[Rfam]
RNA sequence: AGGGCAGGGGGGUCUCAGCCUUCCGGUUGAGCCUGUCCGGCAGGUUGCGCGUGAUGGCUCAGGUGCGACCAGUGGUUGUCGCUCGGGGGUGAUCGCCG
Numbered sequence: 001a002g003g004g005c006a007g008g009g010g011g012g013u014c015u016c017a018g019c020c021u022u023c024c025g026g027u028u029g030a031g032c033c034u035g036u037c038c039g040g041c042a043g044g045u046u047g048c049g050c051g052u053g054a055u056g057g058c059u060c061a062g063g064u065g066c067g068a069c070c071a072g073u074g075g076u077u078g079u080c081g082c083u084c085g086g087g088g089g090u091g092a093u094c095g096c097c098g
Base pairs, nucleotide, nucleotide: 002038003037004036005035006034007033008032014031015030016029017028018027019026020025043070044069045068046067047066048065049064050063
RNA: che1 RNA
Organism: Streptomyces sp. SID5785